[Rfam]
RNA: L31-Firmicutes ribosomal protein leader
RNA sequence: CUUUGGAUUCGCAUGAAAUCCAAGGCGGAAGGAG
Numbered sequence: 001c002u003u004u005g006g007a008u009u010c011g012c013a014u015g016a017a018a019u020c021c022a023a024g025g026c027g028g029a030a031g032g033a034g
Base pairs, nucleotide, nucleotide: 001025002024003023004022005021006020007019008018